Small nucleolar RNA SNORA69: a 132-nucleotide RNA sequence from Nannospalax galili. It scores 150 bits against the family's covariance model. Pairs were carried over by alignment from the consensus structure, which was predicted with PFOLD. NCBI's taxonomy places the organism under Eukaryota, Sarcopterygii, Euarchontoglires, Glires, Nannospalax. From the family's description: U69 is a member of the H/ACA class of small nucleolar RNAs (snoRNAs) which act as guides in the the modification of uridines to pseudouridines. Rfam classes the family as an H/ACA-box small nucleolar RNA.
[Rfam]
RNA sequence: AAAGCAGGCUGCAAUUACAGUGCUUCAUUUUGUGGGAGUACUGCCAUUAUCCUGCUGAAAGAAAAGCCAUGUUGAUUGUUUCUGAUUUUGCCUUUCUGGGGGUAAAAUCAUGACAGCUUGACAUGGACAGUU
Numbered sequence: 001a002a003a004g005c006a007g008g009c010u011g012c013a014a015u016u017a018c019a020g021u022g023c024u025u026c027a028u029u030u031u032g033u034g035g036g037a038g039u040a041c042u043g044c045c046a047u048u049a050u051c052c053u054g055c056u057g058a059a060a061g062a063a064a065a066g067c068c069a070u071g072u073u074g075a076u077u078g079u080u081u082c083u084g085a086u087u088u089u090g091c092c093u094u095u096c097u098g099g100g101g102g103u104a105a106a107a108u109c110a111u112g113a114c115a116g117c118u119u120g121a122c123a124u125g126g127a128c129a130g131u132u
Stems, first nucleotide, its partner, number of pairs: 003056006018043009067126009077116001083110012